[Rfam]
RNA: ALIL pseudoknot
Nucleotides: 117
Base pairs, nucleotide, nucleotide: 016032018030019029020028078117079116082113089112090111092109093108094107096105097104098103
Number, partner (000 for none) and nucleotide at each position: 001000u002000g003000c004000g005000u006000u007000u008000u009000u010000c011000g012000c013000c014000c015000a016032g017000a018030u019029g020028g021000c022000g023000u024000u025000c026000c027000a028020c029019c030018g031000c032016c033000g034000a035000c036000u037000c038000a039000a040000g041000u042000c043000c044000u045000g046000a047000a048000g049000g050000c051000c052000u053000u054000c055000g056000u057000c058000g059000a060000u061000c062000a063000g064000c065000a066000u067000c068000g069000c070000g071000a072000c073000a074000c075000c076000u077000u078117u079116g080000g081000g082113g083000u084000c085000g086000a087000g088000c089112c090111g091000a092109u093108c094107u095000a096105c097104a098103a099000g100000g101000u102000u103098u104097u105096g106000c107094g108093g109092a110000u111090u112089g113082c114000g115000a116079c117078g